RNA: Plant signal recognition particle RNA
RNA sequence: GCCGAGUUGAGUAACGCCAACUUGUGACUCAAGUGAGGGCACCAAGGUGAUGGAACAUGGUUUAGGCUACGCUUGGUGGGAUUAGAAGCUUGCACCAUGCUGGCUUGCCCGCUCCAAGUUGAGAGUUGGGCCCUGGCUCCCGAGCGAAGGCUCGAGUGUCCUGGCUCGUAGGCUAGAGGGCACCGCGUCAGGCUGGUUUAACAGAGCAGCGAAUACCUCUGGCUCCCAACAGUGGAGGGAUCACAAGCUGCUGCACCACUAAUCCACAAUGCUGGGUGUGCCUAACCAUUGAACCAUCAACUUU
Numbered sequence: 001g002c003c004g005a006g007u008u009g010a011g012u013a014a015c016g017c018c019a020a021c022u023u024g025u026g027a028c029u030c031a032a033g034u035g036a037g038g039g040c041a042c043c044a045a046g047g048u049g050a051u052g053g054a055a056c057a058u059g060g061u062u063u064a065g066g067c068u069a070c071g072c073u074u075g076g077u078g079g080g081a082u083u084a085g086a087a088g089c090u091u092g093c094a095c096c097a098u099g100c101u102g103g104c105u106u107g108c109c110c111g112c113u114c115c116a117a118g119u120u121g122a123g124a125g126u127u128g129g130g131c132c133c134u135g136g137c138u139c140c141c142g143a144g145c146g147a148a149g150g151c152u153c154g155a156g157u158g159u160c161c162u163g164g165c166u167c168g169u170a171g172g173c174u175a176g177a178g179g180g181c182a183c184c185g186c187g188u189c190a191g192g193c194u195g196g197u198u199u200a201a202c203a204g205a206g207c208a209g210c211g212a213a214u215a216c217c218u219c220u221g222g223c224u225c226c227c228a229a230c231a232g233u234g235g236a237g238g239g240a241u242c243a244c245a246a247g248c249u250g251c252u253g254c255a256c257c258a259c260u261a262a263u264c265c266a267c268a269a270u271g272c273u274g275g276g277u278g279u280g281c282c283u284a285a286c287c288a289u290u291g292a293a294c295c296a297u298c299a300a301c302u303u304u
Base pairs, nucleotide, nucleotide: 001040002039003038004023005022006021007020008019009018028037029036030035044303045302046301048299049298050297051296052295053294056291057290058288059287060286062285063284064283065282066281067280069279070278071277072276073275074274075273076272077271078270079265080264081263082262083261084260085259088257091255092254101250102249103248104247105246106245107244109239110238112237113236114235115234116233118230119229120228121227123225124224125223126222128167129166130165131164132163135160136159137158139156141154142153143152144151145150168173174221175220176219177218178217179216186211187210188209193204194203195202